[Rfam]
RNA sequence: AUAUGGCUUAGUUACGAGGCAGAUACUAAUGGGGAUCCAAAUGUCUUUUGGAUAUUUUGAUCUUCGUUACUAAGGCCUUUUGAGGGGAUUCUUGCUCUAUUUUUCCAUCAAUUGUCCCCCAAGCUGCCUUGGACAUUU
Dot-bracket structure: ...((.(((......))).))............((((....(((((...)))))....)))).......(((((((..((((.((((((..(..................)..))))))))))..)))))))......

Annotation:
The record is a 138-nucleotide RNA sequence from Nyssa sinensis, which matches "Small nucleolar RNA U19" in Rfam. The match comes from Rfam's covariance-model search (88 bits). A reference for the family is Marker et al. (2002), "Experimental RNomics: identification of 140 candidates for small non-messenger RNAs in the plant Arabidopsis thaliana", Curr Biol. NCBI's taxonomy places the organism under Eukaryota, Streptophytina, Spermatophyta, Magnoliopsida, Nyssa.